[Rfam]
RNA sequence: AGACCCUUUAAUAUAGUCCAGAGAGGCUAAAAAGGCAUCGGAACAAUGAUAAAUGUAAUGGUCGUAUGUUCAAAUCCCUUUUUGCCUCUGUGGCGAAAAGGGAUUUUUCA
Numbered sequence: 001a002g003a004c005c006c007u008u009u010a011a012u013a014u015a016g017u018c019c020a021g022a023g024a025g026g027c028u029a030a031a032a033a034g035g036c037a038u039c040g041g042a043a044c045a046a047u048g049a050u051a052a053a054u055g056u057a058a059u060g061g062u063c064g065u066a067u068g069u070u071c072a073a074a075u076c077c078c079u080u081u082u083u084g085c086c087u088c089u090g091u092g093g094c095g096a097a098a099a100g101g102g103a104u105u106u107u108u109c110a
Base pairs, nucleotide, nucleotide: 005035006034007033008032009031014029015028016027017026018025040071041070042069046065047064048063049062050061052059072106073105074104075103076102077101078100079099080098081097082096083095084094085093
Record summary:
PyrR binding site: a 110-nucleotide RNA sequence from Lentibacillus amyloliquefaciens. Taxonomically the source falls in Lentibacillus (Bacteria, Bacillota, Bacilli, Bacillaceae). Pairs were carried over by alignment from the consensus structure, which is taken from published work.